[Rfam]
A member of the RNA family "Group I catalytic intron" from Singulisphaera acidiphila, 282 nucleotides long. The family's consensus secondary structure is taken from published work. A reference for the family is Cech (1990), "Self-splicing of group I introns", Annu Rev Biochem. Taxonomically the source falls in Singulisphaera acidiphila (Bacteria, Pseudomonadati, Planctomycetota, Planctomycetia). The match comes from Rfam's covariance-model search (70 bits). Group I catalytic introns are large self-splicing ribozymes.

RNA sequence: AUUUGUUCCUUAAAAAAAUGGUGGCGCCGGGGGGUAACCCUCGAACGCGAUCCGGGUGAAUUGCGGGAAACCUAAACGCUUGGUGUCGAGAGCAGUUUCGCACCAGGAGCAUGGCAAUCCGCAGCCUAGCCUGGCCGGGCAACCGGUGGCCAGGACGGUUCAGAGACUAGCGGGGUGAGUCCCAACAAUAACCCCCGCCGACGAGCGCCCGGCCUCCUCGUUCCUUUUUUUCCGAAAAGGUCGAGGAGGGUGAGAUAGUCCAAGCCUCGUGGAAACGCGAGG
Number, nucleotide and partner (000 for none) at each position: 001a000002u000003u000004u000005g027006u026007u000008c024009c023010u000011u021012a000013a019014a000015a000016a000017a000018a000019u013020g000021g011022u000023g009024g008025c000026g006027c005028c000029g000030g000031g041032g040033g039034g000035u000036a000037a000038c000039c033040c032041u031042c000043g000044a000045a000046c000047g000048c000049g000050a000051u000052c212053c211054g210055g209056g000057u207058g206059a000060a000061u000062u123063g122064c121065g120066g119067g118068a000069a000070a000071c114072c113073u000074a000075a000076a000077c000078g000079c000080u000081u000082g000083g000084u000085g000086u000087c000088g000089a000090g000091a000092g000093c000094a000095g000096u000097u000098u000099c000100g000101c000102a000103c000104c000105a000106g000107g000108a000109g000110c000111a000112u000113g072114g071115c000116a000117a000118u067119c066120c065121g064122c063123a062124g159125c158126c000127u000128a000129g000130c153131c000132u000133g000134g000135c000136c000137g000138g000139g000140c000141a000142a000143c000144c000145g000146g000147u000148g000149g000150c000151c000152a000153g130154g000155a000156c000157g000158g125159u124160u000161c000162a000163g261164a000165g260166a259167c258168u257169a256170g000171c000172g000173g000174g000175g000176u000177g000178a000179g000180u000181c000182c000183c000184a000185a000186c000187a000188a000189u000190a000191a000192c000193c000194c000195c000196c000197g000198c000199c000200g000201a000202c000203g000204a000205g000206c058207g057208c000209c055210c054211g053212g052213c000214c000215u247216c246217c245218u244219c243220g242221u000222u240223c239224c000225u000226u000227u000228u000229u000230u000231u000232c000233c000234g000235a000236a000237a000238a000239g223240g222241u000242c220243g219244a218245g217246g216247a215248g000249g000250g000251u000252g000253a000254g000255a000256u169257a168258g167259u166260c165261c163262a000263a000264g000265c000266c000267u280268c279269g278270u277271g276272g000273a000274a000275a000276c271277g270278c269279g268280a267281g000282g000